[Rfam]
6S / SsrS RNA: a 183-nucleotide RNA sequence from a Paenibacillaceae bacterium. Pairs were carried over by alignment from the consensus structure, which is taken from published work. A search with the family's covariance model found it, with a score of 81 bits. The family's RNA type in Rfam is non-coding RNA gene.

RNA sequence: UACAUCCUGCGGUGUUCGUUACGGCUUUACGUUGUUUUGAACCAAUGGCUGUUUCACGGGAGUUCUAUAUCGAAGCGUAGCUGUCAUGCCCCCGAAAAGGGACUUCAAAAUCGCUUCUGCGGACACCCACCUGCGAAAGCGGGUUCUGAAACAUGUGAGUCGGACGGCAUCGGCGGGUUUUAA
Numbered sequence: 001u002a003c004a005u006c007c008u009g010c011g012g013u014g015u016u017c018g019u020u021a022c023g024g025c026u027u028u029a030c031g032u033u034g035u036u037u038u039g040a041a042c043c044a045a046u047g048g049c050u051g052u053u054u055c056a057c058g059g060g061a062g063u064u065c066u067a068u069a070u071c072g073a074a075g076c077g078u079a080g081c082u083g084u085c086a087u088g089c090c091c092c093c094g095a096a097a098a099g100g101g102a103c104u105u106c107a108a109a110a111u112c113g114c115u116u117c118u119g120c121g122g123a124c125a126c127c128c129a130c131c132u133g134c135g136a137a138a139g140c141g142g143g144u145u146c147u148g149a150a151a152c153a154u155g156u157g158a159g160u161c162g163g164a165c166g167g168c169a170u171c172g173g174c175g176g177g178u179u180u181u182a183a
Stems, first nucleotide, its partner, number of pairs: 002181001004179001006177005012170004017166003035151004039146005058128003062124004069118001072117006089101003
Dot-bracket structure: .(.(.(((((.((((.(((...............(((((((((..............(((.((((...(..((((((...........(((.......)))..........)))))))..)))).))).............))))).))))............)))))))..))))).).)..